This 77-nucleotide RNA sequence from Hermetia illucens belongs to the Rfam family "mir-2796 microRNA precursor family". Pairs were carried over by alignment from the consensus structure, which was predicted with RNAalifold. The match comes from Rfam's covariance-model search (81 bits).

RNA sequence: GUAGUGGGUCAGGGGUUUCUUUCGGCCUCCAGCAGUAAUUGAGGUUGUAGGCCGGCGGAAACUACUUGCUCCACUCC
Numbered sequence: 001g002u003a004g005u006g007g008g009u010c011a012g013g014g015g016u017u018u019c020u021u022u023c024g025g026c027c028u029c030c031a032g033c034a035g036u037a038a039u040u041g042a043g044g045u046u047g048u049a050g051g052c053c054g055g056c057g058g059a060a061a062c063u064a065c066u067u068g069c070u071c072c073a074c075u076c077c
Stems, first nucleotide, its partner, number of pairs: 005073004010068004014063007022055007030047003